[Rfam]
RNA sequence: CCAUCAUCACCAUCAUAUAGCAUAACCUUUCAGGUUCGUGCUGGAAGGCUAUUGUUUCCUUCCAGUGGCGCAGAUGAAGAUUUCUAAGGCCCCCGGAAGGAAACUUUCGGGGGUUUUUCGUU
Numbered sequence: 001c002c003a004u005c006a007u008c009a010c011c012a013u014c015a016u017a018u019a020g021c022a023u024a025a026c027c028u029u030u031c032a033g034g035u036u037c038g039u040g041c042u043g044g045a046a047g048g049c050u051a052u053u054g055u056u057u058c059c060u061u062c063c064a065g066u067g068g069c070g071c072a073g074a075u076g077a078a079g080a081u082u083u084c085u086a087a088g089g090c091c092c093c094c095g096g097a098a099g100g101a102a103a104c105u106u107u108c109g110g111g112g113g114u115u116u117u118u119c120g121u122u
Stems, first nucleotide, its partner, number of pairs: 008040003012035003020031001041065008086117014
Dot-bracket structure: .......(((.(((.....(..........).)))..)))((((((((.........))))))))....................((((((((((((((....)))))))))))))).....
RNA: Histidine operon leader
Organism: Salinimonas marina